The record is a 105-nucleotide RNA sequence from Bacillus sp. FJAT-50079, which matches "SAM riboswitch aptamer (S box leader)" in Rfam. The source organism's lineage runs through Bacteria, Bacillota, Bacilli, Bacillaceae and Bacillus. The match comes from Rfam's covariance-model search (88 bits).

RNA sequence: AACUUAUCAAGAGUGACUGAGGGAUCAGGCCCGAAGACGUCCGGCAACCUCCAAUUGGGGAAAGGUGCCACUUCCUGCGGAAUGGAAAAUUCUGAAAGAUAAGUC
Dot-bracket structure: .(((((((....(.(((...(((..[[[[)))......))))((((.(((((......)))..))))))...(]]]]((((((.....))))))..)))))))).
Numbered sequence: 001a002a003c004u005u006a007u008c009a010a011g012a013g014u015g016a017c018u019g020a021g022g023g024a025u026c027a028g029g030c031c032c033g034a035a036g037a038c039g040u041c042c043g044g045c046a047a048c049c050u051c052c053a054a055u056u057g058g059g060g061a062a063a064g065g066u067g068c069c070a071c072u073u074c075c076u077g078c079g080g081a082a083u084g085g086a087a088a089a090u091u092c093u094g095a096a097a098g099a100u101a102a103g104u105c
Stems, first nucleotide, its partner, number of pairs: 002104007013042001015041003021032003026077004043069004048065002050061003073097001078094006